This 600-nucleotide part of an RNA from Mixia osmundae belongs to the Rfam family "Eukaryotic large subunit ribosomal RNA". Rfam's curators put it in the seed alignment. The family's consensus secondary structure is taken from published work. Taxonomically the source falls in Mixia osmundae (Eukaryota, Opisthokonta, Fungi, Mixiaceae).

RNA sequence: GGGAAAGAAGACCCUGUUGAGCUUGACUCUAGUUUGACAUUGUGAAAAGACAUAGAGGGUGUAGAAUAAGUGGGAGCAGCAAUGCGCCGGUGAAAUACCACUACCUUUAUCGUCUUUUUACUUAUUCAAUUAAGCGGAGCUGAAUCGAAAGAUUCACCUUUUGGCUUUCAAUGUUGGCUCGCCCAGCAGAUCCGGGUUGAAGACAUUGUCAGGUGGGGAGUUUGGCUGGGGCGGCACAUCCGUUAAACAAUAACGCGGGUGUCCCAAGGGCAGCUCAUCGAGAACAGAAAUCUCGAGUAGAGAAAAAGGUCAAAAGCUGCCUUGAUUUUGUGUUUCAGUGUGAUACAAAUUUACCGGGAAACCGUGGCCUAUCGAUCCUUUAUGUCCUCGGAAUUUGAGGCUAGAGGUGCCAGAAAAGUUACCACAGGGAUAACUGGCUUGUGGCAGCCAAGCGUUCAUAGCGACGUUGCUUUUUGAUCCUUCGAUGUCGGCUCUUCCUAUCAUACCGAAGCAGAAUUCGGUAAGCGUUGGAUUGUUCACCCACUAAUUAGGGAACGUGAGCUGGGUUUAGACCGUCGUGAGACAGGUUAGUUUUACCCU
Numbered sequence: 001g002g003g004a005a006a007g008a009a010g011a012c013c014c015u016g017u018u019g020a021g022c023u024u025g026a027c028u029c030u031a032g033u034u035u036g037a038c039a040u041u042g043u044g045a046a047a048a049g050a051c052a053u054a055g056a057g058g059g060u061g062u063a064g065a066a067u068a069a070g071u072g073g074g075a076g077c078a079g080c081a082a083u084g085c086g087c088c089g090g091u092g093a094a095a096u097a098c099c100a101c102u103a104c105c106u107u108u109a110u111c112g113u114c115u116u117u118u119u120a121c122u123u124a125u126u127c128a129a130u131u132a133a134g135c136g137g138a139g140c141u142g143a144a145u146c147g148a149a150a151g152a153u154u155c156a157c158c159u160u161u162u163g164g165c166u167u168u169c170a171a172u173g174u175u176g177g178c179u180c181g182c183c184c185a186g187c188a189g190a191u192c193c194g195g196g197u198u199g200a201a202g203a204c205a206u207u208g209u210c211a212g213g214u215g216g217g218g219a220g221u222u223u224g225g226c227u228g229g230g231g232c233g234g235c236a237c238a239u240c241c242g243u244u245a246a247a248c249a250a251u252a253a254c255g256c257g258g259g260u261g262u263c264c265c266a267a268g269g270g271c272a273g274c275u276c277a278u279c280g281a282g283a284a285c286a287g288a289a290a291u292c293u294c295g296a297g298u299a300g301a302g303a304a305a306a307a308g309g310u311c312a313a314a315a316g317c318u319g320c321c322u323u324g325a326u327u328u329u330g331u332g333u334u335u336c337a338g339u340g341u342g343a344u345a346c347a348a349a350u351u352u353a354c355c356g357g358g359a360a361a362c363c364g365u366g367g368c369c370u371a372u373c374g375a376u377c378c379u380u381u382a383u384g385u386c387c388u389c390g391g392a393a394u395u396u397g398a399g400g401c402u403a404g405a406g407g408u409g410c411c412a413g414a415a416a417a418g419u420u421a422c423c424a425c426a427g428g429g430a431u432a433a434c435u436g437g438c439u440u441g442u443g444g445c446a447g448c449c450a451a452g453c454g455u456u457c458a459u460a461g462c463g464a465c466g467u468u469g470c471u472u473u474u475u476g477a478u479c480c481u482u483c484g485a486u487g488u489c490g491g492c493u494c495u496u497c498c499u500a501u502c503a504u505a506c507c508g509a510a511g512c513a514g515a516a517u518u519c520g521g522u523a524a525g526c527g528u529u530g531g532a533u534u535g536u537u538c539a540c541c542c543a544c545u546a547a548u549u550a551g552g553g554a555a556c557g558u559g560a561g562c563u564g565g566g567u568u569u570a571g572a573c574c575g576u577c578g579u580g581a582g583a584c585a586g587g588u589u590a591g592u593u594u595u596a597c598c599c600u
Stems, first nucleotide, its partner, number of pairs: 001600003005595002013428004018424002020420005026221004033213007042121010052110007069102005076085002125201005135194004142155005172188005224237001225235003238260006263367002269321006275301002278296006302311002326353001327349008355364003378406005386400004437478001439476001441475001443471006452462002489565001490563004494557001495554005502527001505522006529543003533539001571589004575584003